Pistol ribozyme: a 73-nucleotide RNA sequence from Microcystis phage MaeS. Gene Ontology term of the family: catalytic activity. The literature on the family includes a 2015 paper in Nat Chem Biol by Weinberg et al., "New classes of self-cleaving ribozymes revealed by comparative genomics analysis". A search with the family's covariance model found it, with a score of 68 bits.
RNA sequence: ACUCGUUCGAGCGAGUAUAAAAAGGCUUUAGGCUCGAAGCGUUGAAGGAGGUUCUUUACUCCUUCAGGUAGCA
Numbered sequence: 001a002c003u004c005g006u007u008c009g010a011g012c013g014a015g016u017a018u019a020a021a022a023a024g025g026c027u028u029u030a031g032g033c034u035c036g037a038a039g040c041g042u043u044g045a046a047g048g049a050g051g052u053u054c055u056u057u058a059c060u061c062c063u064u065c066a067g068g069u070a071g072c073a
Base pairs, nucleotide, nucleotide: 001016002015003014004013006038007037008036009035010034011033025072026071027070032040042067043066044065045064046063047062048061049060